[Rfam]
RNA sequence: UGUCAUGCUUUUCCACAGCUUUCUUGAACUUCAACUAUUGUUCUUUUUGCUCUCUCUCUCUCUCUCUCUCAAUUGUGGAAGUCCAAGAAAGCUGUGGGAAGACAUGGCAA
Numbered sequence: 001u002g003u004c005a006u007g008c009u010u011u012u013c014c015a016c017a018g019c020u021u022u023c024u025u026g027a028a029c030u031u032c033a034a035c036u037a038u039u040g041u042u043c044u045u046u047u048u049g050c051u052c053u054c055u056c057u058c059u060c061u062c063u064c065u066c067u068c069u070c071a072a073u074u075g076u077g078g079a080a081g082u083c084c085a086a087g088a089a090a091g092c093u094g095u096g097g098g099a100a101g102a103c104a105u106g107g108c109a110a
Base pairs, nucleotide, nucleotide: 003107004106005105006104007103013097014096015095017093018092019091020090021089022088024086025085026084029081030080031079032078
The record is a 110-nucleotide RNA from Actinidia chinensis, which matches "MIR396 microRNA precursor family" in Rfam. Rfam links the family to the GO terms miRNA-mediated post-transcriptional gene silencing and RISC complex. A reference for the family is Jones-Rhoades and Bartel (2004), "Computational identification of plant microRNAs and their targets, including a stress-induced miRNA", Mol Cell. A search with the family's covariance model found it, with a score of 84 bits. Taxonomically the source falls in Actinidia chinensis (Eukaryota, Tracheophyta, asterids, Actinidiaceae).